The family of this 73-nucleotide RNA from Rhinolophus ferrumequinum is "Small nucleolar RNA SNORD83". Rfam links the family to the GO terms nucleolus and RNA processing. A reference for the family is Jady and Kiss (2000), "Characterisation of the U83 and U84 small nucleolar RNAs: two novel 2'-O-ribose methylation guide RNAs that lack complementarities to ribosomal RNAs", Nucleic Acids Res. The family's RNA type in Rfam is C/D-box small nucleolar RNA.

[Rfam]
RNA sequence: GCCACAUGAUGUUUUGAUGUUGAGCGAGCGCUGCGCGGUGACGACCUUAAUCUAUCACCCUUGACUGAUGGCU
Numbered sequence: 001g002c003c004a005c006a007u008g009a010u011g012u013u014u015u016g017a018u019g020u021u022g023a024g025c026g027a028g029c030g031c032u033g034c035g036c037g038g039u040g041a042c043g044a045c046c047u048u049a050a051u052c053u054a055u056c057a058c059c060c061u062u063g064a065c066u067g068a069u070g071g072c073u
Stems, first nucleotide, its partner, number of pairs: 001072004028036003